This 37-nucleotide RNA sequence from Symbiobacterium thermophilum belongs to the Rfam family "CRISPR RNA direct repeat element".
RNA sequence: GUAGCACCCGCCCCCCAGGCUGGGUGAGGAUUGAAAC
Number, nucleotide and partner (000 for none) at each position: 001g000002u000003a000004g000005c026006a025007c024008c023009c022010g021011c000012c019013c018014c000015c000016c000017a000018g013019g012020c000021u010022g009023g008024g007025u006026g005027a000028g000029g000030a000031u000032u000033g000034a000035a000036a000037c000